[Rfam]
RNA sequence: CGCACAAUUUACACGGACCCGCCCUGGUGUUCUACCUUGGUGCCGGUGGUGUCCGCCAGUGUUGUGCAAG
Numbered sequence: 001c002g003c004a005c006a007a008u009u010u011a012c013a014c015g016g017a018c019c020c021g022c023c024c025u026g027g028u029g030u031u032c033u034a035c036c037u038u039g040g041u042g043c044c045g046g047u048g049g050u051g052u053c054c055g056c057c058a059g060u061g062u063u064g065u066g067c068a069a070g
Stems, first nucleotide, its partner, number of pairs: 002067007015054004021047002026044003

About this RNA:
Rfam assigns this 70-nucleotide sequence from Trypanosoma cruzi to the family "Trypanosomatid snoRNA TB9Cs3H1". It is annotated as an H/ACA-box small nucleolar RNA. For this family Rfam cites "A genome-wide analysis of C/D and H/ACA-like small nucleolar RNAs in Trypanosoma brucei reveals a trypanosome-specific pattern of rRNA modification" (Liang et al., RNA, 2005).